[Rfam]
RNA sequence: AUGCCUCUAUCUGACAGGCCUGGGGUAGUUACUGCUGCUAAGGUUUCCACUGCAGACGCAAGAGAAAAAGAGUCCUUGUGCUUUCUGUCUGAUUGUGACAGGCCAGAUUGAAUGAGGGAAGACAGGG
Numbered sequence: 001a002u003g004c005c006u007c008u009a010u011c012u013g014a015c016a017g018g019c020c021u022g023g024g025g026u027a028g029u030u031a032c033u034g035c036u037g038c039u040a041a042g043g044u045u046u047c048c049a050c051u052g053c054a055g056a057c058g059c060a061a062g063a064g065a066a067a068a069a070g071a072g073u074c075c076u077u078g079u080g081c082u083u084u085c086u087g088u089c090u091g092a093u094u095g096u097g098a099c100a101g102g103c104c105a106g107a108u109u110g111a112a113u114g115a116g117g118g119a120a121g122a123c124a125g126g127g
Base pairs, nucleotide, nucleotide: 002060003059004058006056007055008054012049013048016046017045018044019043020042024036025035026034027033028032073119074118075117076116077115081110084107085106086105087104089101090100091099093097

Shown here is a 127-nucleotide RNA sequence from Vicugna pacos, a member of the family "Small nucleolar RNA SNORA31". ACA31 (SNORA31) belongs to the H/ACA class of snoRNAs which are thought to guide the sites of modification of uridines to pseudouridines. ACA31 is predicted to guide the pseudouridylation of U3713 in 28S rRNA and U218 in 18S rRNA. This family includes the mouse homologue snoMBI-161. The match comes from Rfam's covariance-model search (46 bits). It is annotated as an H/ACA-box small nucleolar RNA. For this family Rfam cites "RNomics: an experimental approach that identifies 201 candidates for novel, small, non-messenger RNAs in mouse" (Huttenhofer et al., EMBO J, 2001).